[Rfam]
The family of this 157-nucleotide RNA from Roseitalea porphyridii is "Alphaproteobacterial sRNA ar9". Pairs were carried over by alignment from the consensus structure. A reference for the family is del Val et al. (2012), "A survey of sRNA families in alpha-proteobacteria", RNA Biol. NCBI's taxonomy places the organism under Bacteria, Pseudomonadati, Alphaproteobacteria, Hyphomicrobiales, Roseitalea. It scores 45 bits against the family's covariance model. By type it is a small RNA.

RNA sequence: GCCACGCUCGCAGGCGUUAGCGCGCCUGCGGCCACGGAACGGGUCAAAGUCUUGGGAGGAACUGGUUUUCGGGCGCUCCAAGGAGCCGCCGCUUCCAUCGGGAAGAGAAGAAAAUCACCCGUUUCGAAAUGGCAGGACUUCGGUCCUGCCAUUUUUU
Numbered sequence: 001g002c003c004a005c006g007c008u009c010g011c012a013g014g015c016g017u018u019a020g021c022g023c024g025c026c027u028g029c030g031g032c033c034a035c036g037g038a039a040c041g042g043g044u045c046a047a048a049g050u051c052u053u054g055g056g057a058g059g060a061a062c063u064g065g066u067u068u069u070c071g072g073g074c075g076c077u078c079c080a081a082g083g084a085g086c087c088g089c090c091g092c093u094u095c096c097a098u099c100g101g102g103a104a105g106a107g108a109a110g111a112a113a114a115u116c117a118c119c120c121g122u123u124u125c126g127a128a129a130u131g132g133c134a135g136g137a138c139u140u141c142g143g144u145c146c147u148g149c150c151a152u153u154u155u156u157u
Stems, first nucleotide, its partner, number of pairs: 001032003005028001040121004050060003064116005072090003075086003092107003131150008